Shown here is a 144-nucleotide RNA sequence from Firmicutes bacterium AF12-30, a member of the family "FMN riboswitch aptamer (RFN element)". The base pairs follow the family's consensus structure, which is taken from published work. The match comes from Rfam's covariance-model search (89 bits).

[Rfam]
RNA sequence: CUCCAACUUCAGGGCAGAGUGAGAUAUCGAAGAUAUCAAUUCUCGACUGGUGGUGAUACUCUAAGAGAGAUAAGUCCACGAGCGUAAAGCCGAUCAGGUUAGAAUCCUGAACCAACAGUAUAGUCUGGAUGAAAGAAGUAGUUG
Number, nucleotide and partner (000 for none) at each position: 001c000002u000003c000004c141005a000006a139007c138008u137009u136010c135011a000012g000013g000014g000015c000016a000017g044018a043019g042020u000021g000022a000023g000024a000025u000026a000027u000028c000029g000030a000031a000032g000033a000034u000035a000036u000037c000038a000039a000040u000041u000042c019043u018044c017045g000046a124047c123048u114049g113050g079051u078052g077053g076054u000055g000056a000057u000058a000059c000060u000061c000062u000063a000064a000065g000066a000067g000068a000069g000070a000071u000072a000073a000074g112075u111076c053077c052078a051079c050080g000081a000082g090083c089084g000085u000086a000087a000088a000089g083090c082091c000092g000093a000094u110095c109096a108097g107098g106099u000100u000101a000102g000103a000104a000105u000106c098107c097108u096109g095110a094111a075112c074113c049114a048115a000116c127117a126118g125119u000120a000121u000122a000123g047124u046125c118126u117127g116128g000129a000130u000131g000132a000133a000134a000135g010136a009137a008138g007139u006140a000141g004142u000143u000144g000
Notes: Rfam describes the family as follows. The RFN element is a highly conserved domain that is found frequently in the 5'-untranslated regions of prokaryotic mRNAs that encode for flavin mononucleotide (FMN) biosynthesis and transport proteins.